[Rfam]
RNA: Bacillus sRNA ncr1241
RNA sequence: ACGAAGGCUUUCUAGUAUUCCCCCCUUUUAUUUGGAUGCGAACCGGGUUCGUAUCUUUUUUU
Number, nucleotide and partner (000 for none) at each position: 001a000002c000003g028004a027005a026006g025007g024008c000009u000010u000011u000012c000013u000014a000015g000016u000017a000018u000019u000020c000021c000022c000023c000024c007025c006026u005027u004028u003029u000030a000031u000032u000033u000034g056035g055036a054037u053038g052039c051040g050041a049042a048043c047044c000045g000046g000047g043048u042049u041050c040051g039052u038053a037054u036055c035056u034057u000058u000059u000060u000061u000062u000